[Rfam]
Rfam assigns this 133-nucleotide sequence from Camelus dromedarius to the family "Small nucleolar RNA SNORA11".
Rfam's curators write: U107 (SNORA11) is a member of the H/ACA class of snoRNAs that guide the sites of modification of uridines to pseudouridines. This snoRNA was identified by RT-PCR from blood cells and its expression confirmed by Northern blot analysis. There is no predicted target for this guide snRNA.
Pairs were carried over by alignment from the consensus structure, which was predicted with RNAalifold.
Gene Ontology terms of the family: nucleolus and RNA processing.
Lineage of the source: Eukaryota > Chordata > Boreoeutheria > Camelidae > Camelus.
The family's RNA type in Rfam is H/ACA-box small nucleolar RNA.
RNA sequence: AGGGUGUGCUCAGAAACAGGGGGCCUGAAGAAACGGCUCCUGUUUUACAGACACUCAACAGAAGUCUGGGUUCACUGUGACAAGGGGCACCAGACUUGGUGCCUUUGGUCCUGUGAGGAAAUACCUUCCAGUG
Numbered sequence: 001a002g003g004g005u006g007u008g009c010u011c012a013g014a015a016a017c018a019g020g021g022g023g024c025c026u027g028a029a030g031a032a033a034c035g036g037c038u039c040c041u042g043u044u045u046u047a048c049a050g051a052c053a054c055u056c057a058a059c060a061g062a063a064g065u066c067u068g069g070g071u072u073c074a075c076u077g078u079g080a081c082a083a084g085g086g087g088c089a090c091c092a093g094a095c096u097u098g099g100u101g102c103c104u105u106u107g108g109u110c111c112u113g114u115g116a117g118g119a120a121a122u123a124c125c126u127u128c129c130a131g132u133g
Stems, first nucleotide, its partner, number of pairs: 002056006013046005020041003023037003069126002072123001076119001078117001081115002084105003088101005